[Rfam]
U1 spliceosomal RNA: a 164-nucleotide RNA from Cebus imitator. Rfam classes the family as a spliceosomal small nuclear RNA. Gene Ontology terms of the family: U1 snRNP, mRNA 5'-splice site recognition and pre-mRNA 5'-splice site binding. Lineage of the source: Eukaryota > Deuterostomia > Eutheria > Primates > Cebus.
Nucleotides: 164
Stems, first nucleotide, its partner, number of pairs: 012121004016046005022041005048089001050087002055082003059078005091116001093114001094112003098108002137163005143158001146155003
Number, partner (000 for none) and nucleotide at each position: 001000a002000u003000a004000u005000u006000u007000a008000c009000c010000u011000g012121g013120c014119a015118g016046g017045g018044a019043g020042a021000u022041a023040c024039u025038a026037u027000g028000a029000u030000c031000a032000u033000g034000a035000a036000g037026g038025u039024g040023g041022u042020u043019c044018u045017c046016c047000c048089a049000a050087g051086g052000c053000a054000a055082g056081g057080c058000u059078u060077a061076u062075c063074c064000a065000u066000u067000g068000c069000a070000c071000u072000c073000g074063g075062g076061a077060u078059g079000u080057g081056c082055u083000g084000a085000c086051c087050c088000c089048u090000g091116c092000a093114a094112u095111u096110u097000c098108c099107c100000c101000a102000a103000a104000u105000g106000u107099g108098g109000g110096a111095a112094a113000c114093u115000c116091g117000a118015c119014u120013g121012c122000a123000u124000a125000a126000u127000u128000c129000a130000u131000g132000u133000u134000a135000g136000u137163g138162g139161g140160g141159g142000g143158a144000c145000u146155g147154c148153g149000u150000u151000c152000g153148u154147g155146c156000u157000u158143u159141c160140c161139c162138c163137u164000g